[Rfam]
Rfam assigns this 57-nucleotide sequence from Papaver somniferum to the family "Plastid-rps18 3UTR RNA". The family's RNA type in Rfam is cis-regulatory element. The organism belongs to Papaver, within Eukaryota. Rfam's curators write: Plastid rps18 is a non-coding RNA (ncRNA) present in plastids. It was identified as a short stem-loop motif in the 3 prime untranslate region (3UTR) of rps18 gene. The family's consensus secondary structure was predicted with LocARNA. A search with the family's covariance model found it, with a score of 71 bits.
RNA sequence: UGCAAGUAUUUUACGAUUAAGAAGUAACUGCCCCUUGUGAAGAUCAUGUAUUAAUCA
Numbered sequence: 001u002g003c004a005a006g007u008a009u010u011u012u013a014c015g016a017u018u019a020a021g022a023a024g025u026a027a028c029u030g031c032c033c034c035u036u037g038u039g040a041a042g043a044u045c046a047u048g049u050a051u052u053a054a055u056c057a
Stems, first nucleotide, its partner, number of pairs: 018037004024031002